[Rfam]
RNA: Bacterial RNase P class A
RNA sequence: GGAGUCGGCCGGACAGUCGCUGCGACCUUGUGUCGUGGAGGAAAGUCCGGGCUCCAUAGGGCAGGGUGCCAGGUAACGCCUGGGCGGCGCGAGCCGACGGAAAGUGCCACAGAAAACAUACCGCCGAUGGCUCGGACCCGUUCCGGGAUCAGGUAAGGGUGAAAAGGUGCGGUAAGAGCGCACCGCGCGGGUGGCAACACUUCGCGGCACGGUAAACCCCACCCGGAGCAAGGCCAAAUAGGGGUGCAUUGGUGUGGCCCGCACUGCACCCGGGUAGGCUGCUCGAGGCGCGCGGUGACGCGCGUCCCAGAUGAAUGACUGUCCCAGACAGAACCCGGCUUACAGGCCGACUCCCCAU
Number, nucleotide and partner (000 for none) at each position: 001g354002g353003a352004g351005u350006c349007g348008g347009c346010c345011g343012g323013a322014c321015a320016g319017u318018c317019g000020c038021u037022g036023c035024g034025a033026c032027c000028u000029u000030g000031u000032g026033u025034c024035g023036u022037g021038g020039a000040g000041g000042a000043a341044a340045g339046u000047c338048c337049g336050g335051g334052c228053u227054c226055c225056a000057u000058a000059g260060g259061g258062c257063a000064g224065g223066g222067u221068g220069c083070c082071a081072g080073g079074u000075a000076a000077c000078g000079c073080c072081u071082g070083g069084g098085c096086g095087g094088c093089g000090c000091g000092a000093g088094c087095c086096g085097a000098c084099g219100g218101a000102a000103a000104g217105u216106g213107c212108c211109a000110c000111a000112g000113a000114a000115a000116a000117c000118a000119u000120a000121c158122c157123g154124c153125c152126g000127a000128u151129g150130g149131c000132u147133c146134g000135g000136a000137c000138c000139c000140g000141u000142u000143c000144c000145g000146g133147g132148a000149u130150c129151a128152g125153g124154u123155a000156a000157g122158g121159g000160u000161g000162a000163a000164a000165a000166g184167g183168u182169g181170c180171g179172g000173u000174a000175a000176g000177a000178g000179c171180g170181c169182a168183c167184c166185g208186c206187g205188c204189g203190g202191g200192u199193g198194g000195c000196a000197a000198c193199a192200c191201u000202u190203c189204g188205c187206g186207g000208c185209a000210c000211g108212g107213u106214a000215a000216a105217c104218c100219c099220c068221a067222c066223c065224c064225g055226g054227a053228g052229c000230a000231a000232g280233g279234c278235c277236a000237a000238a000239u000240a000241g000242g271243g270244g269245u268246g267247c266248a000249u000250u000251g265252g264253u263254g262255u261256g000257g062258c061259c060260c059261g255262c254263a253264c252265u251266g247267c246268a245269c244270c243271c242272g000273g000274g000275u000276a000277g235278g234279c233280u232281g000282c000283u000284c000285g000286a000287g306288g305289c304290g303291c302292g301293c300294g299295g000296u000297g000298a000299c294300g293301c292302g291303c290304g289305u288306c287307c000308c000309a000310g000311a000312u000313g000314a000315a000316u000317g018318a017319c016320u015321g014322u013323c012324c000325c000326a000327g000328a000329c000330a000331g000332a000333a000334c051335c050336c049337g048338g047339c045340u044341u043342a000343c011344a000345g010346g009347c008348c007349g006350a005351c004352u003353c002354c001355c000356c000357a000358u000